A member of the RNA family "Vault RNA" from Mus spicilegus, 143 nucleotides long.
[Rfam]
RNA sequence: GGGCCAGCUUUAGCUCAGCGGUUACUUCGACUGCAGUUCAGUUCAUUACCAGCUAUUCGUAGCAGGUUCGAACAACACAGCCAAGCACUUAUCUAACCCGUGAGUGUUUGGUUCGAGACCCGCGGGCGCUCCCUGGCCCUUUU
Numbered sequence: 001g002g003g004c005c006a007g008c009u010u011u012a013g014c015u016c017a018g019c020g021g022u023u024a025c026u027u028c029g030a031c032u033g034c035a036g037u038u039c040a041g042u043u044c045a046u047u048a049c050c051a052g053c054u055a056u057u058c059g060u061a062g063c064a065g066g067u068u069c070g071a072a073c074a075a076c077a078c079a080g081c082c083a084a085g086c087a088c089u090u091a092u093c094u095a096a097c098c099c100g101u102g103a104g105u106g107u108u109u110g111g112u113u114c115g116a117g118a119c120c121c122g123c124g125g126g127c128g129c130u131c132c133c134u135g136g137c138c139c140u141u142u143u
Stems, first nucleotide, its partner, number of pairs: 002138006013127004018123004026117005
From the family's description: This family of RNAs are found as part of the enigmatic vault ribonucleoprotein complex. A search with the family's covariance model found it, with a score of 76 bits. NCBI's taxonomy places the organism under Eukaryota, Bilateria, Tetrapoda, Glires, Mus. Rfam classes the family as a non-coding RNA gene.